RNA sequence: CCAGCACCUCAGCCCAAGAACUGCUGUUUCUCAUCGCAGCAGUUUAAACAGAGGUGCUCACAGCAGGUGGACCUCGUCGCCUUUGGGGGGCUGUGGCCGUGCCCCUCGAAGUGAAUCUGGAGGUUCUACAGCC
Numbered sequence: 001c002c003a004g005c006a007c008c009u010c011a012g013c014c015c016a017a018g019a020a021c022u023g024c025u026g027u028u029u030c031u032c033a034u035c036g037c038a039g040c041a042g043u044u045u046a047a048a049c050a051g052a053g054g055u056g057c058u059c060a061c062a063g064c065a066g067g068u069g070g071a072c073c074u075c076g077u078c079g080c081c082u083u084u085g086g087g088g089g090g091c092u093g094u095g096g097c098c099g100u101g102c103c104c105c106u107c108g109a110a111g112u113g114a115a116u117c118u119g120g121a122g123g124u125u126c127u128a129c130a131g132c133c
Stems, first nucleotide, its partner, number of pairs: 003058007019044009069126007081111011
RNA: Small nucleolar RNA SNORA68
Organism: Ailuropoda melanoleuca